[Rfam]
Overview
Rfam assigns this 143-nucleotide RNA sequence from Caminicella sporogenes to the family "PyrR binding site". The family's RNA type in Rfam is cis-regulatory element. The source organism's lineage runs through Bacteria, Bacillati, Peptostreptococcales, Caminicella and Caminicella sporogenes. It scores 60 bits against the family's covariance model. This family represents the PyrR binding site and terminator structure. This RNA structure is found upstream of a variety of genes involved in pyrimidine biosynthesis and transport. The alignment also includes a portion of the antiterminator structure.
RNA sequence: UUUACCUUUAAAUUAACCCCGUGAGGUUAAUAAGGUCGAAAUAACUGUAUAAAGCGGAUAUUCUAUAUGCAGUAAUAUCUGAAAAGUUAUACAAUGCUUAGUUAAUCAACCUUCUUUAUCCUCAGGGUAAAGAAGGUUUUUUU
Numbered sequence: 001u002u003u004a005c006c007u008u009u010a011a012a013u014u015a016a017c018c019c020c021g022u023g024a025g026g027u028u029a030a031u032a033a034g035g036u037c038g039a040a041a042u043a044a045c046u047g048u049a050u051a052a053a054g055c056g057g058a059u060a061u062u063c064u065a066u067a068u069g070c071a072g073u074a075a076u077a078u079c080u081g082a083a084a085a086g087u088u089a090u091a092c093a094a095u096g097c098u099u100a101g102u103u104a105a106u107c108a109a110c111c112u113u114c115u116u117u118a119u120c121c122u123c124a125g126g127g128u129a130a131a132g133a134a135g136g137u138u139u140u141u142u143u
Stems, first nucleotide, its partner, number of pairs: 004036005013030006044073008053064002056061001108138014